[Rfam]
RNA sequence: UGCAGUCAGUAGGGGUUUCUUUCGGCCUUCAGCUGUUUAUAGACUGUAGGCCGGCGGAAACUACUUGCCGGCUGUG
Numbered sequence: 001u002g003c004a005g006u007c008a009g010u011a012g013g014g015g016u017u018u019c020u021u022u023c024g025g026c027c028u029u030c031a032g033c034u035g036u037u038u039a040u041a042g043a044c045u046g047u048a049g050g051c052c053g054g055c056g057g058a059a060a061c062u063a064c065u066u067g068c069c070g071g072c073u074g075u076g
Stems, first nucleotide, its partner, number of pairs: 005072003010067004014062007022054007030046003

Description: The family of this 76-nucleotide RNA sequence from Helicoverpa armigera is "mir-2796 microRNA precursor family". The match comes from Rfam's covariance-model search (85 bits). Taxonomically the source falls in Helicoverpa (Eukaryota, Opisthokonta, Bilateria, Ditrysia).